Rfam assigns this 48-nucleotide RNA sequence from Sphingobium fontiphilum to the family "chrB-b RNA". It scores 38 bits against the family's covariance model. Lineage of the source: Bacteria > Pseudomonadati > Sphingomonadales > Sphingobiaceae > Sphingobium. Pairs were carried over by alignment from the consensus structure, which is taken from published work.
[Rfam]
RNA sequence: UCGGGGCAAGGCGACCCCCCGAUCAGGCGUUCCCCGCCCAAGCGUCGC
Numbered sequence: 001u002c003g004g005g006g007c008a009a010g011g012c013g014a015c016c017c018c019c020c021g022a023u024c025a026g027g028c029g030u031u032c033c034c035c036g037c038c039c040a041a042g043c044g045u046c047g048c
Stems, first nucleotide, its partner, number of pairs: 001022006011048005026038004